[Rfam]
Rfam assigns this 252-nucleotide RNA from Streptomyces ipomoeae to the family "Streptomyces sRNA 4677". Rfam's curators write: Located in the intergenic region between anti-sigma factor SCO4677 gene and a putative regulatory protein gene SCO4676. scr4677 expression requires the SCO4677 activity and scr4677 sRNA itself seem to affect the levels of the SCO4676-associated transcripts. The base pairs follow the family's consensus structure. The source organism's lineage runs through Bacteria, Bacillati, Actinomycetes, Streptomycetaceae and Streptomyces ipomoeae. For this family Rfam cites "Complex intra-operonic dynamics mediated by a small RNA in Streptomyces coelicolor" (Hindra et al., PLoS One, 2014).

RNA sequence: UGCUGCGGCGGGGCGGGCUGUCUUUCCCAAGGAACUCAAGGAUGAAAGAACCCCACCAAGCCCCACCCCUCCCGCCCGCCGAGCACACUCACCCCGACGGGUGAACAUCGCCGACUCGGCUGGAUUCGGGGCCGGUUGAUGCCCUUACGCUCAGCGCAGCACCACCACAACCGCAGACAUGCGACGGCCCCCGCCAGGACGGCAAUCCCAGUGCGAGGGCCUGACCACCGAGGAAGAUCGGACCUCUUCCUG
Numbered sequence: 001u002g003c004u005g006c007g008g009c010g011g012g013g014c015g016g017g018c019u020g021u022c023u024u025u026c027c028c029a030a031g032g033a034a035c036u037c038a039a040g041g042a043u044g045a046a047a048g049a050a051c052c053c054c055a056c057c058a059a060g061c062c063c064c065a066c067c068c069c070u071c072c073c074g075c076c077c078g079c080c081g082a083g084c085a086c087a088c089u090c091a092c093c094c095c096g097a098c099g100g101g102u103g104a105a106c107a108u109c110g111c112c113g114a115c116u117c118g119g120c121u122g123g124a125u126u127c128g129g130g131g132c133c134g135g136u137u138g139a140u141g142c143c144c145u146u147a148c149g150c151u152c153a154g155c156g157c158a159g160c161a162c163c164a165c166c167a168c169a170a171c172c173g174c175a176g177a178c179a180u181g182c183g184a185c186g187g188c189c190c191c192c193g194c195c196a197g198g199a200c201g202g203c204a205a206u207c208c209c210a211g212u213g214c215g216a217g218g219g220c221c222u223g224a225c226c227a228c229c230g231a232g233g234a235a236g237a238u239c240g241g242a243c244c245u246c247u248u249c250c251u252g
Base pairs, nucleotide, nucleotide: 007229008228010226016076017075018074020073089104090103091102092101093100094099119155120154121153122152123151186221187220188219189218190217192215193214194213197208198207199206232250233249234248235247236246